Shown here is a 38-nucleotide RNA from Corallincola holothuriorum, a member of the family "JUMPstart RNA". By type it is a cis-regulatory element. Pairs were carried over by alignment from the consensus structure, which is taken from published work.
RNA sequence: AGGCGAUUUGGGGGCCGUAACCCAAGGGCGGUAGCGUG
Numbered sequence: 001a002g003g004c005g006a007u008u009u010g011g012g013g014g015c016c017g018u019a020a021c022c023c024a025a026g027g028g029c030g031g032u033a034g035c036g037u038g
Stems, first nucleotide, its partner, number of pairs: 008025005
Notes: Taxonomically the source falls in Corallincola (Bacteria, Pseudomonadota, Gammaproteobacteria, Alteromonadales). The family has 128 seed sequences and 288 matches in Rfam 15.1.